[Rfam]
RNA sequence: GCUCUCGUCAUUGGGGAGUAGCUGCCCGGGCGCACCACACGGCGGCACGAUCCCCUCGUGCCCAUCGUCGGUGACCCUCCGGGGCGGAUGUCAACACACUUGGCCGGUGAGGCCAUGGCAUCCGCAGCACCACGUUCGCCGUGGCGCCU
Numbered sequence: 001g002c003u004c005u006c007g008u009c010a011u012u013g014g015g016g017a018g019u020a021g022c023u024g025c026c027c028g029g030g031c032g033c034a035c036c037a038c039a040c041g042g043c044g045g046c047a048c049g050a051u052c053c054c055c056u057c058g059u060g061c062c063c064a065u066c067g068u069c070g071g072u073g074a075c076c077c078u079c080c081g082g083g084g085c086g087g088a089u090g091u092c093a094a095c096a097c098a099c100u101u102g103g104c105c106g107g108u109g110a111g112g113c114c115a116u117g118g119c120a121u122c123c124g125c126a127g128c129a130c131c132a133c134g135u136u137c138g139c140c141g142u143g144g145c146g147c148c149u
Stems, first nucleotide, its partner, number of pairs: 026082005084125010101115005
The family of this 149-nucleotide RNA sequence from Sphaerotilus hippei is "Manganese Mn2+ riboswitch aptamer (yybP-ykoY)". Rfam links the family to the GO term manganese ion binding. The match comes from Rfam's covariance-model search (60 bits). NCBI's taxonomy places the organism under Bacteria, Betaproteobacteria, Burkholderiales, Sphaerotilaceae, Sphaerotilus.